[Rfam]
RNA sequence: AGCUUUGCGCAGUGGCAGUAUCGUAGCCAAUGAGGUUUAUCCAAGGCAUGAUUAUUGCUAAUUAAAGGCCCUAUCUCCAAAUGCAGUCAUGUUGGGAGUUAGGGCUUUAAAAUGUGAAUUUUGGGGGGGACACAGUUUAGUCC
Number, nucleotide and partner (000 for none) at each position: 001a000002g000003c000004u000005u000006u000007g000008c000009g000010c000011a000012g000013u000014g000015g000016c000017a000018g000019u000020a052021u051022c050023g049024u048025a000026g047027c046028c045029a000030a000031u000032g000033a000034g042035g041036u000037u000038u000039a000040u000041c035042c034043a000044a000045g028046g027047c026048a024049u023050g022051a021052u020053u000054a000055u000056u000057g000058c000059u000060a000061a000062u000063u000064a000065a000066a000067g000068g000069c000070c000071c000072u000073a000074u000075c000076u000077c000078c000079a000080a000081a000082u000083g000084c000085a000086g000087u000088c116089a115090u114091g000092u111093u110094g000095g108096g107097a106098g105099u104100u000101a000102g000103g000104g099105c098106u097107u096108u095109a000110a093111a092112a000113u000114g090115u089116g088117a000118a000119u000120u000121u000122u000123g000124g000125g000126g000127g000128g143129g142130a141131c140132a000133c000134a000135g000136u000137u000138u000139a000140g131141u130142c129143c128